[Rfam]
Nucleotides: 128
Base pairs, nucleotide, nucleotide: 008078009077010076011075012074014028015027016026017025029049031047032046033045034044035043036042050073051072052071053070054069055068056067100125101124102123103122104121105120106119107118111117112116
Number, partner (000 for none) and nucleotide at each position: 001000a002000a003000a004000a005000a006000g007000u008078g009077u010076u011075g012074g013000u014028u015027g016026g017025c018000u019000a020000a021000a022000u023000a024000u025017g026016c027015c028014a029049c030000u031047c032046u033045c034044a035043c036042c037000u038000a039000u040000g041000g042036g043035g044034u045033g046032a047031g048000u049029g050073u051072u052071g053070u054069a055068u056067g057000g058000u059000c060000a061000u062000c063000a064000a065000u066000a067056c068055a069054u070053a071052u072051g073050g074012u075011c076010g077009a078008c079000a080000u081000a082000a083000u084000u085000u086000a087000u088000g089000g090000a091000a092000c093000c094000u095000a096000c097000c098000a099000u100125a101124g102123g103122g104121u105120u106119g107118g108000c109000u110000c111117u112116c113000a114000u115000u116112g117111g118107c119106c120105g121104a122103c123102c124101c125100u126000c127000u128000a